[Rfam]
RNA sequence: CUGUGAACUUUAUAUCGCGCACAUCACUUAGAUGAACUCUAGAGAGUCGCAUAGGAG
Numbered sequence: 001c002u003g004u005g006a007a008c009u010u011u012a013u014a015u016c017g018c019g020c021a022c023a024u025c026a027c028u029u030a031g032a033u034g035a036a037c038u039c040u041a042g043a044g045a046g047u048c049g050c051a052u053a054g055g056a057g
Stems, first nucleotide, its partner, number of pairs: 019037001022034004
RNA: Plastid-ndhJ 3UTR RNA
Organism: Gossypium mustelinum